[Rfam]
RNA sequence: GGAAAAGUGGCUGAGUGGUUGAAAGUACUCCGUUGGAAGCGGAGCAUACGGCAACGUAUCGCGGGUUCGAAUCCCGCCUUUUCCG
Numbered sequence: 001g002g003a004a005a006a007g008u009g010g011c012u013g014a015g016u017g018g019u020u021g022a023a024a025g026u027a028c029u030c031c032g033u034u035g036g037a038a039g040c041g042g043a044g045c046a047u048a049c050g051g052c053a054a055c056g057u058a059u060c061g062c063g064g065g066u067u068c069g070a071a072u073c074c075c076g077c078c079u080u081u082u083c084c085g
Stems, first nucleotide, its partner, number of pairs: 001084007010026003028044005061077005

A member of the RNA family "tRNA" from Aquella oligotrophica, 85 nucleotides long. Pairs were carried over by alignment from the consensus structure, which is taken from published work.